A member of the RNA family "Group I catalytic intron" from Ustilago bromivora, 296 nucleotides long. Rfam describes the family as follows. Group I catalytic introns are large self-splicing ribozymes. They catalyse their own excision from mRNA, tRNA and rRNA precursors in a wide range of organisms. The core secondary structure consists of 9 paired regions (P1-P9). These fold to essentially two domains - the P4-P6 domain (formed from the stacking of P5, P4, P6 and P6a helices) and the P3-P9 domain (formed from the P8, P3, P7 and P9 helices). The secondary structure mark-up for this family represents only this conserved core. Group I catalytic introns often have long ORFs inserted in loop regions. The window size for this search is chosen to minimise search time and catch the small examples. A larger window size will find more matches.
RNA sequence: AAAUUAAUCUUAUAGCCAUAGUCCUUCUAUAUUGUGAAAUAUAGAGUUGCAUCGGGUGAAUUGCAAGGAAGUCUUCAUAUAAUUAUAACCCCCCCUUUCAGGUAGGUUAUAUUAUUUAAGAUAAUUUGCAGCUAAGCUUAAGUCAGUGCCUUUCUAAUAAUAAAUUAGAAAGUGAUUUAAGAAAGUUCAACGACUAAUCGGUGAGUUGCACUAACAAUAACCCGGACACGAGCGCCCGACAUCUAGAAAUAAAAUACUAGAUGAUGACAUAGUCUAAACUUGAUAGAAAUAUCAAG
Numbered sequence: 001a002a003a004u005u006a007a008u009c010u011u012a013u014a015g016c017c018a019u020a021g022u023c024c025u026u027c028u029a030u031a032u033u034g035u036g037a038a039a040u041a042u043a044g045a046g047u048u049g050c051a052u053c054g055g056g057u058g059a060a061u062u063g064c065a066a067g068g069a070a071g072u073c074u075u076c077a078u079a080u081a082a083u084u085a086u087a088a089c090c091c092c093c094c095c096u097u098u099c100a101g102g103u104a105g106g107u108u109a110u111a112u113u114a115u116u117u118a119a120g121a122u123a124a125u126u127u128g129c130a131g132c133u134a135a136g137c138u139u140a141a142g143u144c145a146g147u148g149c150c151u152u153u154c155u156a157a158u159a160a161u162a163a164a165u166u167a168g169a170a171a172g173u174g175a176u177u178u179a180a181g182a183a184a185g186u187u188c189a190a191c192g193a194c195u196a197a198u199c200g201g202u203g204a205g206u207u208g209c210a211c212u213a214a215c216a217a218u219a220a221c222c223c224g225g226a227c228a229c230g231a232g233c234g235c236c237c238g239a240c241a242u243c244u245a246g247a248a249a250u251a252a253a254a255u256a257c258u259a260g261a262u263g264a265u266g267a268c269a270u271a272g273u274c275u276a277a278a279c280u281u282g283a284u285a286g287a288a289a290u291a292u293c294a295a296g
Stems, first nucleotide, its partner, number of pairs: 006025001010021004032038001052239004057234002062130006072121004131186002138179001144174002147171001190275001192274005242261005248255001281294005
On this family, see Cech, Annu Rev Biochem 1990: "Self-splicing of group I introns".